[Rfam]
RNA sequence: GCGCCCAUAGCUCAGUGGAUAGAGCACCGGUCUUCUAAACCGAUGGUCGACGGUUCGAAUCCGCCUGGGCGCA
Numbered sequence: 001g002c003g004c005c006c007a008u009a010g011c012u013c014a015g016u017g018g019a020u021a022g023a024g025c026a027c028c029g030g031u032c033u034u035c036u037a038a039a040c041c042g043a044u045g046g047u048c049g050a051c052g053g054u055u056c057g058a059a060u061c062c063g064c065c066u067g068g069g070c071g072c073a
Stems, first nucleotide, its partner, number of pairs: 001072007010025004028042004049065001051063003
The family of this 73-nucleotide sequence from a Coriobacteriaceae bacterium is "tRNA". Pairs were carried over by alignment from the consensus structure, which is taken from published work. Rfam classes the family as a transfer RNA. A search with the family's covariance model found it, with a score of 68 bits. Its family is annotated with triplet codon-amino acid adaptor activity in the Gene Ontology. The source organism's lineage runs through Bacteria, Bacillati, Coriobacteriia, Coriobacteriales and Coriobacteriaceae.